[Rfam]
Nucleotides: 072
Base pairs, nucleotide, nucleotide: 003070004069006067007066008065009064011062012061013060014059015058016057017056018055019054020052023048024047025046026045027044028043030041031040
Number, partner (000 for none) and nucleotide at each position: 001000u002000u003070u004069c005000u006067c007066u008065g009064u010000a011062a012061g013060u014059u015058u016057u017056g018055c019054a020052u021000u022000g023048u024047u025046g026045c027044a028043c029000c030041a031040c032000a033000a034000g035000a036000a037000a038000a039000a040031g041030u042000u043028g044027u045026g046025c047024a048023a049000a050000u051000c052020a053000a054019u055018g056017c057016a058015a059014a060013a061012c062011u063000g064009a065008c066007a067006g068000c069004g070003g071000a072000c